[Rfam]
Annotation: Shown here is a 121-nucleotide RNA sequence from Bacillus aerolatus, a member of the family "epsC RNA". The match comes from Rfam's covariance-model search (115 bits).
RNA sequence: UGGUAAUGCCUCCUAACCUUUAUCAAUGGAGGCACUCGGCUGUACUGUGGGUCUGGAUGGAAUUCCUCGGCCUUAGACGCAAGUCGUCAGUAGUGCAGCGUGAGGACGGGUUAGAUGCCCA
Number, nucleotide and partner (000 for none) at each position: 001u000002g018003g017004u016005a000006a000007u034008g033009c032010c031011u030012c029013c028014u000015a000016a004017c003018c002019u000020u000021u000022a000023u000024c000025a000026a000027u000028g013029g012030a011031g010032g009033c008034a007035c104036u103037c102038g101039g099040c098041u097042g096043u095044a094045c093046u092047g000048u000049g073050g072051g071052u070053c069054u000055g067056g066057a000058u000059g000060g000061a000062a000063u000064u000065c000066c056067u055068c000069g053070g052071c051072c050073u049074u000075a000076g088077a087078c086079g085080c000081a000082a000083g000084u000085c079086g078087u077088c076089a000090g000091u000092a046093g045094u044095g043096c042097a041098g040099c039100g000101u038102g037103a036104g035105g000106a000107c000108g120109g119110g118111u117112u000113a000114g000115a000116u000117g111118c110119c109120c108121a000